[Rfam]
RNA sequence: CCCUAUUCUCAGGGCGGGGCGCAAUUCCCCACCGGCGGUAUGUGGCCCCAGUGCCACGAGCCCGCGAGCGCUGGCGACAUCCCUUCGGGAUGCGCCGGGUCAGCAGAUCUGGUGAGAUGCCAGAGCCGACGGUCAUAGUCCGGAUGAAAGAGAAUGCGU
Numbered sequence: 001c002c003c004u005a006u007u008c009u010c011a012g013g014g015c016g017g018g019g020c021g022c023a024a025u026u027c028c029c030c031a032c033c034g035g036c037g038g039u040a041u042g043u044g045g046c047c048c049c050a051g052u053g054c055c056a057c058g059a060g061c062c063c064g065c066g067a068g069c070g071c072u073g074g075c076g077a078c079a080u081c082c083c084u085u086c087g088g089g090a091u092g093c094g095c096c097g098g099g100u101c102a103g104c105a106g107a108u109c110u111g112g113u114g115a116g117a118u119g120c121c122a123g124a125g126c127c128g129a130c131g132g133u134c135a136u137a138g139u140c141c142g143g144a145u146g147a148a149a150g151a152g153a154a155u156g157c158g159u
Stems, first nucleotide, its partner, number of pairs: 004156007017029003031139002033128002035065004060126002068104002108124005130142003
This 159-nucleotide sequence from Sulfitobacter pontiacus belongs to the Rfam family "FMN riboswitch aptamer (RFN element)". The RFN element is a highly conserved domain that is found frequently in the 5'-untranslated regions of prokaryotic mRNAs that encode for flavin mononucleotide (FMN) biosynthesis and transport proteins. Pairs were carried over by alignment from the consensus structure, which is taken from published work.